Rfam assigns this 377-nucleotide sequence from Leucobacter sp. UCD-THU to the family "Bacterial RNase P class A". Rfam classes the family as a ribozyme. Lineage of the source: Bacteria > Bacillati > Actinomycetota > Microbacteriaceae > Leucobacter.

RNA sequence: ACGGGCUGGCGGGCGGUCGCGUCGCGGCACUUCGGUGCUCGCGCCGAGGAACGUCCGGGCUGCACAGAGGAGAACGGUGGGUAACACCCACCCGGGGCGACCCGCGAGAAAGUGCAACAGAGAGUAGACCGCCCGAUGCGGCACGCUGCAUCGGGUAAGGGUGAAAGGGUGGUGUAAGAGACCACCGGCGUUCGUGGUGACACGGGCGGCCAGGUAAACCUCGUUCGCAGCAAGGCCAGACAGCAGACGUCGACGCUCCUCGCCGAGUCUGCGGGUAGGCCGCUAGAGGGUGUCGGCAACGGCGCCCCGAGAGAGAUGACCGUCACCGGCCGGUUCGCCGGCCGGGACAGAACCCGGCGUACAGCCGGCCCGUUCCC
Numbered sequence: 001a002c003g004g005g006c007u008g009g010c011g012g013g014c015g016g017u018c019g020c021g022u023c024g025c026g027g028c029a030c031u032u033c034g035g036u037g038c039u040c041g042c043g044c045c046g047a048g049g050a051a052c053g054u055c056c057g058g059g060c061u062g063c064a065c066a067g068a069g070g071a072g073a074a075c076g077g078u079g080g081g082u083a084a085c086a087c088c089c090a091c092c093c094g095g096g097g098c099g100a101c102c103c104g105c106g107a108g109a110a111a112g113u114g115c116a117a118c119a120g121a122g123a124g125u126a127g128a129c130c131g132c133c134c135g136a137u138g139c140g141g142c143a144c145g146c147u148g149c150a151u152c153g154g155g156u157a158a159g160g161g162u163g164a165a166a167g168g169g170u171g172g173u174g175u176a177a178g179a180g181a182c183c184a185c186c187g188g189c190g191u192u193c194g195u196g197g198u199g200a201c202a203c204g205g206g207c208g209g210c211c212a213g214g215u216a217a218a219c220c221u222c223g224u225u226c227g228c229a230g231c232a233a234g235g236c237c238a239g240a241c242a243g244c245a246g247a248c249g250u251c252g253a254c255g256c257u258c259c260u261c262g263c264c265g266a267g268u269c270u271g272c273g274g275g276u277a278g279g280c281c282g283c284u285a286g287a288g289g290g291u292g293u294c295g296g297c298a299a300c301g302g303c304g305c306c307c308c309g310a311g312a313g314a315g316a317u318g319a320c321c322g323u324c325a326c327c328g329g330c331c332g333g334u335u336c337g338c339c340g341g342c343c344g345g346g347a348c349a350g351a352a353c354c355c356g357g358c359g360u361a362c363a364g365c366c367g368g369c370c371c372g373u374u375c376c377c
Base pairs, nucleotide, nucleotide: 001373002372003371004370005369006368007367008366009365010364011362012324013323014322015321016320017319018318020046021045023043024042025041026040027039051360052359053358055357056356057355058354059353060230061229062228063227067260069258070257072226073225074224075223076222077091078090079089080088081087092106093104094103095102096101107221108220112219113218114215115214129160130159131156132155133154134153135152136151137150138149139148140147141146168186169185170184171183172182173181188210189208190207191206192205193204194203195202196201234281235280236279237278243272244271245270246269247268248267251265252264254262255261288307289306290305291304292303293302294301295300
Rfam describes the family as follows. Ribonuclease P (RNase P) is a ubiquitous endoribonuclease, found in archaea, bacteria and eukarya as well as chloroplasts and mitochondria. Its best characterised activity is the generation of mature 5'-ends of tRNAs by cleaving the 5'-leader elements of precursor-tRNAs. Cellular RNase Ps are ribonucleoproteins. RNA from bacterial RNase Ps retains its catalytic activity in the absence of the protein subunit, i.e. it is a ribozyme.